Rfam assigns this 64-nucleotide sequence from Enterococcus faecalis to the family "Enterococcus sRNA A9". The source organism's lineage runs through Bacteria, Bacillati, Lactobacillales, Enterococcus and Enterococcus faecalis. The family's RNA type in Rfam is antisense RNA.
[Rfam]
RNA sequence: GCGAAACGACAUUAAAUCGUACAGAUAACACAAAAAGCAAUCCUACGGCGAAUAGGAUUGCUUU
Number, nucleotide and partner (000 for none) at each position: 001g000002c000003g000004a000005a000006a020007c019008g018009a017010c000011a000012u000013u000014a000015a000016a000017u009018c008019g007020u006021a000022c000023a000024g000025a000026u000027a000028a000029c000030a000031c000032a000033a000034a064035a063036a062037g061038c060039a059040a058041u057042c056043c055044u054045a053046c000047g000048g000049c000050g000051a000052a000053u045054a044055g043056g042057a041058u040059u039060g038061c037062u036063u035064u034